small nucleolar RNA snoR117: a 69-nucleotide RNA from Chenopodium quinoa. The organism belongs to Chenopodium, within Eukaryota. By type it is a C/D-box small nucleolar RNA.
[Rfam]
RNA sequence: GGCCAAGGAUUUAUCAAUUGUCCGUACCAUCUGAAUUUGAUGAUAUUCUUAACAAAAUUUCUGAGGCCA
Dot-bracket structure: ((((............................................................)))).